A member of the RNA family "Iron response element II" from Malurus cyaneus, 31 nucleotides long.
The literature on the family includes a 1999 paper in J Biol Chem by Kohler et al., "Molecular cloning of mouse glycolate oxidase. High evolutionary conservation and presence of an iron-responsive element-like sequence in the mRNA".
Rfam links the family to the GO term response to iron ion.
A search with the family's covariance model found it, with a score of 30 bits.
Rfam describes the family as follows. IRE, TFRC, SLC40A1, SDHB, SLC11A2, CDC42BPA, ACO2, ALAS2_H.SAPIENS, CDC14A, EPAS1, ALAS2, qoxD, Hao1, NDUFS1, transferrin, Aconitate.
The source organism's lineage runs through Eukaryota, Amniota, Archosauria, Passeriformes and Malurus cyaneus.
RNA sequence: AAAUCAACAGCAGCAGUGUCUGCUUUGGUUU
Numbered sequence: 001a002a003a004u005c006a007a008c009a010g011c012a013g014c015a016g017u018g019u020c021u022g023c024u025u026u027g028g029u030u031u
Base pairs, nucleotide, nucleotide: 001031002030003029004028005027006026007025009024010023011022012021013020014018